[Rfam]
RNA sequence: CACUUCCUUAGAUACGAAGUGCCGUAUGACACUUCAAACAACAG
Numbered sequence: 001c002a003c004u005u006c007c008u009u010a011g012a013u014a015c016g017a018a019g020u021g022c023c024g025u026a027u028g029a030c031a032c033u034u035c036a037a038a039c040a041a042c043a044g
Stems, first nucleotide, its partner, number of pairs: 001044001016035006
RNA: Small nucleolar RNA U49